About this RNA:
A member of the RNA family "mir-87 microRNA precursor family" from Drosophila navojoa, 80 nucleotides long. It scores 62 bits against the family's covariance model.

RNA sequence: CAUUCGCGCCUGUAUCUUGCUGAACCGUUACAAAUGUCACAUCCGAAUCCGGUUGAGCAAAAUUUCAGGUGUGUGAGAAA
Numbered sequence: 001c002a003u004u005c006g007c008g009c010c011u012g013u014a015u016c017u018u019g020c021u022g023a024a025c026c027g028u029u030a031c032a033a034a035u036g037u038c039a040c041a042u043c044c045g046a047a048u049c050c051g052g053u054u055g056a057g058c059a060a061a062a063u064u065u066c067a068g069g070u071g072u073g074u075g076a077g078a079a080a
Stems, first nucleotide, its partner, number of pairs: 003077004007071006014063002017060002020057002023054001025052003